Background:
This 139-nucleotide RNA from Paenibacillus naphthalenovorans belongs to the Rfam family "c-di-AMP riboswitch aptamer (ydaO/yuaA leader)". NCBI's taxonomy places the organism under Bacteria, Bacillati, Caryophanales, Paenibacillaceae, Paenibacillus.
RNA sequence: UUGAAUAGCGAGCCGAAUUUCUAAAGGAAAACGGGGGAACCAUGAGUUUAGGGGUGAAUUCAGCGGAUACAAUCCGCUGAUAGGGUGCCUGUACAUCCGAAUCCGACAGCUAACCUCGUAGGCUUGAAUUACAGGAACC
Numbered sequence: 001u002u003g004a005a006u007a008g009c010g011a012g013c014c015g016a017a018u019u020u021c022u023a024a025a026g027g028a029a030a031a032c033g034g035g036g037g038a039a040c041c042a043u044g045a046g047u048u049u050a051g052g053g054g055u056g057a058a059u060u061c062a063g064c065g066g067a068u069a070c071a072a073u074c075c076g077c078u079g080a081u082a083g084g085g086u087g088c089c090u091g092u093a094c095a096u097c098c099g100a101a102u103c104c105g106a107c108a109g110c111u112a113a114c115c116u117c118g119u120a121g122g123c124u125u126g127a128a129u130u131a132c133a134g135g136a137a138c139c
Base pairs, nucleotide, nucleotide: 011124012123013122014121018030019029020028031119032118033117034116035115036114041051052104053103054102060080061079062078063077064076065075083098084097085096086095
The match comes from Rfam's covariance-model search (90 bits).